[Rfam]
RNA sequence: GUGGACCCCGCGCGGCGUCCAUCCUGUGAACUCCCCCAGGGCCGGAAGGCAGCAAGGGUCAACGGGCUCUGGCGGGUGCGCGGGGUCC
Numbered sequence: 001g002u003g004g005a006c007c008c009c010g011c012g013c014g015g016c017g018u019c020c021a022u023c024c025u026g027u028g029a030a031c032u033c034c035c036c037c038a039g040g041g042c043c044g045g046a047a048g049g050c051a052g053c054a055a056g057g058g059u060c061a062a063c064g065g066g067c068u069c070u071g072g073c074g075g076g077u078g079c080g081c082g083g084g085g086u087c088c
Stems, first nucleotide, its partner, number of pairs: 003088010013076001016074004023066005033058003041050003
Rfam assigns this 88-nucleotide RNA sequence from Mycolicibacterium gilvum to the family "Bacterial small signal recognition particle RNA". Rfam describes the family as follows. The signal recognition particle (SRP) is a universally conserved ribonucleoprotein involved in the co-translational targeting of proteins to membranes. The family's RNA type in Rfam is non-coding RNA gene.